[Rfam]
The family of this 127-nucleotide RNA sequence from Lonepinella koalarum is "FMN riboswitch aptamer (RFN element)".
A search with the family's covariance model found it, with a score of 115 bits.
Its family is annotated with FMN binding in the Gene Ontology.
RNA sequence: UCGCAUUCUCAGGGCAGGGUGAAAUUCCCUACUGGCGGUAUAGCCCGCGAGCGUUCUUGUUAAAGAAGUCAGCAGAUUUGGUGAAACCCCAAAGCCAACAGUAUAGUCUGGAUGAAAGAGAGAUAAC
Numbered sequence: 001u002c003g004c005a006u007u008c009u010c011a012g013g014g015c016a017g018g019g020u021g022a023a024a025u026u027c028c029c030u031a032c033u034g035g036c037g038g039u040a041u042a043g044c045c046c047g048c049g050a051g052c053g054u055u056c057u058u059g060u061u062a063a064a065g066a067a068g069u070c071a072g073c074a075g076a077u078u079u080g081g082u083g084a085a086a087c088c089c090c091a092a093a094g095c096c097a098a099c100a101g102u103a104u105a106g107u108c109u110g111g112a113u114g115a116a117a118g119a120g121a122g123a124u125a126a127c
Stems, first nucleotide, its partner, number of pairs: 006122005017029003031107002033097002035048004043095002051073002077093005099110003